[Rfam]
RNA sequence: AAGGUCGUUUUGACCAUGCCGAAGACAGCAGGCGCCGUGAGGCGUAAGAGCGUAAGCCACCUGCCGAGGAAAGAGUUUACAUGAGAGAUGUAUUUUCUGCCCUUUCGUUUUCGGAAGGGCUUUUAUAAUACCGCC
Dot-bracket structure: ...........................(((((.(((....)))................)))))..................................(((((((((....)))))))))...............
Record summary: The family of this 135-nucleotide sequence from Firmicutes bacterium CAG:95 is "Ribosomal protein L10 leader". On this family, see Zengel and Lindahl, Prog Nucleic Acid Res Mol Biol 1994: "Diverse mechanisms for regulating ribosomal protein synthesis in Escherichia coli". By type it is a cis-regulatory leader. The organism belongs to Bacillota, within Bacteria. The family's consensus secondary structure was predicted with CMfinder.